mir-8/mir-141/mir-200 microRNA precursor family: a 71-nucleotide RNA from Loa loa. The base pairs follow the family's consensus structure, which was predicted with RNAalifold. Lineage of the source: Eukaryota > Eumetazoa > Nematoda > Onchocercidae > Loa. A reference for the family is Lagos-Quintana et al. (2001), "Identification of novel genes coding for small expressed RNAs", Science. The match comes from Rfam's covariance-model search (47 bits). Clan: mir-8 microRNA precursor clan.
[Rfam]
RNA sequence: GCAAUCGUCAUUACCUGACAGUAUUAGAUAUUUCAUAUGACACUCUAAUAUUGUUCAGGUAAGACGACAGC
Numbered sequence: 001g002c003a004a005u006c007g008u009c010a011u012u013a014c015c016u017g018a019c020a021g022u023a024u025u026a027g028a029u030a031u032u033u034c035a036u037a038u039g040a041c042a043c044u045c046u047a048a049u050a051u052u053g054u055u056c057a058g059g060u061a062a063g064a065c066g067a068c069a070g071c
Stems, first nucleotide, its partner, number of pairs: 002070001005067005011062007018054011